[Rfam]
Nucleotides: 075
Base pairs, nucleotide, nucleotide: 001038002037003036004035005034006033007032019031020030021029045059046058047057048056049055
Number, partner (000 for none) and nucleotide at each position: 001038c002037c003036c004035g005034c006033u007032c008000a009000a010000u011000g012000u013000g014000c015000u016000g017000c018000u019031a020030c021029c022000u023000c024000a025000u026000c027000g028000u029021g030020g031019u032007g033006a034005g035004u036003g037002g038001g039000u040000g041000a042000c043000a044000a045059c046058a047057u048056c049055u050000a051000u052000a053000a054000u055049g056048g057047a058046u059045g060000g061000c062000u063000a064000a065000g066000a067000g068000c069000a070000g071000c072000a073000a074000u075000u
Rfam assigns this 75-nucleotide RNA sequence from Paraglomus occultum to the family "HDV ribozyme from F. prausnitzii". Gene Ontology term of the family: catalytic activity. Rfam 15.1 lists 3,803 matches to the family in 91 species. Lineage of the source: Eukaryota > Opisthokonta > Fungi > Glomeromycota > Paraglomus.